Burkholderia sRNA Bp1_Cand738_SIPHT: a 198-nucleotide RNA sequence from Candidatus Paraburkholderia kirkii. The base pairs follow the family's consensus structure, which was predicted with RNAalifold. Taxonomically the source falls in Candidatus Paraburkholderia kirkii (Bacteria, Pseudomonadati, Burkholderiales, Paraburkholderia).

[Rfam]
RNA sequence: AAAAACCGGCGUGUCAAAUGCCGGCAACGACAACCUACAGCCAUGAGUCGCCGGGCAGGAGCGGCGCAGGCGACGCAUGUGCGUUUGAAAGCACCUGAGGCAGAGGUAAAAAGUUUCAAAACCUGCAAUUAAUGCCAAUGGAUUCUAGCAGGGUUUAAUAAUCCGUCAAUGCUAUAGACUUUUUUCAAUUACUUACAG
Numbered sequence: 001a002a003a004a005a006c007c008g009g010c011g012u013g014u015c016a017a018a019u020g021c022c023g024g025c026a027a028c029g030a031c032a033a034c035c036u037a038c039a040g041c042c043a044u045g046a047g048u049c050g051c052c053g054g055g056c057a058g059g060a061g062c063g064g065c066g067c068a069g070g071c072g073a074c075g076c077a078u079g080u081g082c083g084u085u086u087g088a089a090a091g092c093a094c095c096u097g098a099g100g101c102a103g104a105g106g107u108a109a110a111a112a113g114u115u116u117c118a119a120a121a122c123c124u125g126c127a128a129u130u131a132a133u134g135c136c137a138a139u140g141g142a143u144u145c146u147a148g149c150a151g152g153g154u155u156u157a158a159u160a161a162u163c164c165g166u167c168a169a170u171g172c173u174a175u176a177g178a179c180u181u182u183u184u185u186c187a188a189u190u191a192c193u194u195a196c197a198g
Stems, first nucleotide, its partner, number of pairs: 006024007041106002044103001049066005072085005133171002138166004146160002

It is annotated as a small RNA. It is one of the family's seed sequences.